[Rfam]
Fluoride riboswitch aptamer (crcB RNA motif): a 61-nucleotide RNA from Paraburkholderia sp. DHOC27. Its family is annotated with response to fluoride and positive regulation of gene expression in the Gene Ontology. The organism belongs to Paraburkholderia, within Bacteria.
RNA sequence: AUUGCAAAUGGAGAUGGCAUUCUCCCUGACCGCCUUGCUGGCUGAUGAUGCCUACGUAUCC
Numbered sequence: 001a002u003u004g005c006a007a008a009u010g011g012a013g014a015u016g017g018c019a020u021u022c023u024c025c026c027u028g029a030c031c032g033c034c035u036u037g038c039u040g041g042c043u044g045a046u047g048a049u050g051c052c053u054a055c056g057u058a059u060c061c
Stems, first nucleotide, its partner, number of pairs: 010025004016052006032042003
Pairs were carried over by alignment from the consensus structure, which is taken from published work.